[Rfam]
RNA sequence: ACUAAUGGUAGAGGUCGCAUUGUUAAUUAGUAGUUUUGUGGAGGUAAGCACAAUGAAGCAAAAUAAAAGGUACCAGUGCCGAAAUACAUUAAGUAAUGCUUUAAGCUUAUGUAUUGGGGUCAUGUAAAAUAUAUAUGACACUGUCACAUUAAUUUGUGAAGUGCUAUCUUUAGA
Dot-bracket structure: ......(((((.....((((((.((.......(((((((..................)))))))......)).))))))...(((((((.(..(.........)..).)))))))((.((((((((.....)))))))).)).(((((......)))))....)))))......
Numbered sequence: 001a002c003u004a005a006u007g008g009u010a011g012a013g014g015u016c017g018c019a020u021u022g023u024u025a026a027u028u029a030g031u032a033g034u035u036u037u038g039u040g041g042a043g044g045u046a047a048g049c050a051c052a053a054u055g056a057a058g059c060a061a062a063a064u065a066a067a068a069g070g071u072a073c074c075a076g077u078g079c080c081g082a083a084a085u086a087c088a089u090u091a092a093g094u095a096a097u098g099c100u101u102u103a104a105g106c107u108u109a110u111g112u113a114u115u116g117g118g119g120u121c122a123u124g125u126a127a128a129a130u131a132u133a134u135a136u137g138a139c140a141c142u143g144u145c146a147c148a149u150u151a152a153u154u155u156g157u158g159a160a161g162u163g164c165u166a167u168c169u170u171u172a173g174a
Stems, first nucleotide, its partner, number of pairs: 007168005017079006024072002033064007083115007091107001094104001116142002119139008144159005

Rfam assigns this 174-nucleotide sequence from Romboutsia maritimum to the family "Lysine riboswitch aptamer". Pairs were carried over by alignment from the consensus structure, which is taken from published work. Riboswitches are metabolite binding domains within certain messenger RNAs that serve as precision sensors for their corresponding targets. Allosteric rearrangement of mRNA structure is mediated by ligand binding, and this results in modulation of gene expression. This family includes riboswitches that sense lysine in a number of genes involved in lysine metabolism, including lysC. NCBI's taxonomy places the organism under Bacteria, Bacillati, Bacillota, Peptostreptococcaceae, Romboutsia.